The family of this 58-nucleotide RNA from Halovivax ruber is "eL15-Euryarchaeota ribosomal protein leader".
RNA sequence: CCCGUACGGGUUACCCACGGGUUGGAAUGUGGGCCGGCUGACCGGUCUGAACCAGGAA
Number, nucleotide and partner (000 for none) at each position: 001c021002c020003c019004g018005u017006a000007c000008g000009g000010g000011u000012u000013a000014c000015c000016c000017a005018c004019g003020g002021g001022u000023u054024g053025g052026a000027a000028u000029g000030u000031g048032g047033g046034c045035c044036g043037g042038c000039u000040g000041a000042c037043c036044g035045g034046u033047c032048u031049g000050a000051a000052c025053c024054a023055g000056g000057a000058a000
It scores 39 bits against the family's covariance model. Lineage of the source: Archaea > Methanobacteriati > Natrialbaceae > Halovivax > Halovivax ruber. The family's RNA type in Rfam is cis-regulatory leader. The literature on the family includes a 2020 paper in BMC Microbiol by Eckert and Weinberg, "Discovery of 20 novel ribosomal leader candidates in bacteria and archaea".